[Rfam]
RNA sequence: CACCCCAAGGAGCGCUGCAACCCGGUCCCGACGACCGGAUCAGGCUUGGGGCGCAAGACUCAUGAAUUCAACGGCGCUCUCAAAUC
Numbered sequence: 001c002a003c004c005c006c007a008a009g010g011a012g013c014g015c016u017g018c019a020a021c022c023c024g025g026u027c028c029c030g031a032c033g034a035c036c037g038g039a040u041c042a043g044g045c046u047u048g049g050g051g052c053g054c055a056a057g058a059c060u061c062a063u064g065a066a067u068u069c070a071a072c073g074g075c076g077c078u079c080u081c082a083a084a085u086c
Base pairs, nucleotide, nucleotide: 003051004050005049006048007047008046022038023037024036025035026034

Source information: A member of the RNA family "SAH (S-adenosyl-L-homocysteine) riboswitch aptamer" from Halothiobacillus diazotrophicus, 86 nucleotides long. On this family, see Wang et al., Mol Cell 2008: "Riboswitches that sense S-adenosylhomocysteine and activate genes involved in coenzyme recycling". A search with the family's covariance model found it, with a score of 54 bits.